The family of this 63-nucleotide RNA sequence from Bacillus sp. 165 is "Bacillus sRNA ncr1241".
RNA sequence: CACAUGGCUUUCUAGUAUUCCCCCCCUUUUUGGACAAAGUGUUUAUCCACUUUGUCCUUUUUU
Number, nucleotide and partner (000 for none) at each position: 001c000002a000003c000004a027005u000006g025007g024008c000009u000010u000011u000012c000013u000014a000015g000016u000017a000018u000019u000020c000021c000022c000023c000024c007025c006026c000027u004028u000029u000030u000031u000032g057033g056034a055035c054036a053037a052038a051039g050040u049041g048042u000043u000044u000045a000046u000047c000048c041049a040050c039051u038052u037053u036054g035055u034056c033057c032058u000059u000060u000061u000062u000063u000
On this family, see Irnov et al., Nucleic Acids Res 2010: "Identification of regulatory RNAs in Bacillus subtilis".
The family's consensus secondary structure is taken from published work.